[Rfam]
RNA sequence: ACGUUCGGGUAAUCGCUGCAAUGAGCAUUAUGCUACAUUGUAGAGGAAAGUCCAUGCUCGCACGGAGCUGAGAUGCCUGUAGUGAUCGUGCCUAGCCAAUUCAUAAGCUAGGGCAGUUUGGCUUUAAGCUGAACUGACGGCAGGGAAAAUGCCUAAGUCCUUUGGAUAUGGCAUGACUACCUUGAAAGUGCCACAGUGACGGAGCCUUUUCAGAAAUGAAAAGGGUGGAACGAGGUAAACCCCACGAGCGAGAAACCCAAAUAAUGGUAGGGGCACUUUCUCUGAGGAAAUGAACAAGGAGAAGGACAGGUGACGAAUGGUAACCUGUAGAUAGAUGAUUACCACCUAAGUACGAGGUCUAUGACCGUUUGUAGUACAAAGGAACAAAACAUGGCUUACAGAA
Numbered sequence: 001a002c003g004u005u006c007g008g009g010u011a012a013u014c015g016c017u018g019c020a021a022u023g024a025g026c027a028u029u030a031u032g033c034u035a036c037a038u039u040g041u042a043g044a045g046g047a048a049a050g051u052c053c054a055u056g057c058u059c060g061c062a063c064g065g066a067g068c069u070g071a072g073a074u075g076c077c078u079g080u081a082g083u084g085a086u087c088g089u090g091c092c093u094a095g096c097c098a099a100u101u102c103a104u105a106a107g108c109u110a111g112g113g114c115a116g117u118u119u120g121g122c123u124u125u126a127a128g129c130u131g132a133a134c135u136g137a138c139g140g141c142a143g144g145g146a147a148a149a150u151g152c153c154u155a156a157g158u159c160c161u162u163u164g165g166a167u168a169u170g171g172c173a174u175g176a177c178u179a180c181c182u183u184g185a186a187a188g189u190g191c192c193a194c195a196g197u198g199a200c201g202g203a204g205c206c207u208u209u210u211c212a213g214a215a216a217u218g219a220a221a222a223g224g225g226u227g228g229a230a231c232g233a234g235g236u237a238a239a240c241c242c243c244a245c246g247a248g249c250g251a252g253a254a255a256c257c258c259a260a261a262u263a264a265u266g267g268u269a270g271g272g273g274c275a276c277u278u279u280c281u282c283u284g285a286g287g288a289a290a291u292g293a294a295c296a297a298g299g300a301g302a303a304g305g306a307c308a309g310g311u312g313a314c315g316a317a318u319g320g321u322a323a324c325c326u327g328u329a330g331a332u333a334g335a336u337g338a339u340u341a342c343c344a345c346c347u348a349a350g351u352a353c354g355a356g357g358u359c360u361a362u363g364a365c366c367g368u369u370u371g372u373a374g375u376a377c378a379a380a381g382g383a384a385c386a387a388a389a390c391a392u393g394g395c396u397u398a399c400a401g402a403a
Stems, first nucleotide, its partner, number of pairs: 004403003007399001008343007016043008048397003052394005057252005062080004067076002086247005091112006113138001114136010139242002142182003150173004157167003188240002190236003205224008256272003276305007306328006345382003350377004